[Rfam]
RNA sequence: GUCCACAGGAUCGGGAGAAUCCGGCGCGGGGGCAACCCCUUGCCGGUGCCGAAGGAGCAACCGCCCCGGUAAACUCUCAGGCGCAAGGGACCAUCCUGUACGA
Numbered sequence: 001g002u003c004c005a006c007a008g009g010a011u012c013g014g015g016a017g018a019a020u021c022c023g024g025c026g027c028g029g030g031g032g033c034a035a036c037c038c039c040u041u042g043c044c045g046g047u048g049c050c051g052a053a054g055g056a057g058c059a060a061c062c063g064c065c066c067c068g069g070u071a072a073a074c075u076c077u078c079a080g081g082c083g084c085a086a087g088g089g090a091c092c093a094u095c096c097u098g099u100a101c102g103a
Stems, first nucleotide, its partner, number of pairs: 006098006013092002021046006048082003051078002055076003061069002
RNA: Glycine riboswitch aptamer
Organism: Gemmobacter megaterium